[Rfam]
RNA sequence: ACACGAGAAAGGAGGUGGUCCAAGAGUGAAUUCUCAAAGGACGCGUGAGGUGGUUGCGAGCUAGCUCGGACCUUCGUACAACGUCGCCGGCCACCUCCCAAAGUGGACCGACGAAGCGGACGUUCAGGUAGCUACUCCAACGCAGCCACCGCAGCCCGUGGGUGGCGCGAUCUCGUCCAUCGCGCCCACCGGUUCCGACCGGUUGCCCACGGGCUGUCUCAU
Numbered sequence: 001a002c003a004c005g006a007g008a009a010a011g012g013a014g015g016u017g018g019u020c021c022a023a024g025a026g027u028g029a030a031u032u033c034u035c036a037a038a039g040g041a042c043g044c045g046u047g048a049g050g051u052g053g054u055u056g057c058g059a060g061c062u063a064g065c066u067c068g069g070a071c072c073u074u075c076g077u078a079c080a081a082c083g084u085c086g087c088c089g090g091c092c093a094c095c096u097c098c099c100a101a102a103g104u105g106g107a108c109c110g111a112c113g114a115a116g117c118g119g120a121c122g123u124u125c126a127g128g129u130a131g132c133u134a135c136u137c138c139a140a141c142g143c144a145g146c147c148a149c150c151g152c153a154g155c156c157c158g159u160g161g162g163u164g165g166c167g168c169g170a171u172c173u174c175g176u177c178c179a180u181c182g183c184g185c186c187c188a189c190c191g192g193u194u195c196c197g198a199c200c201g202g203u204u205g206c207c208c209a210c211g212g213g214c215u216g217u218c219u220c221a222u
Stems, first nucleotide, its partner, number of pairs: 015057005059133005065127001068125004073120005152216013166184006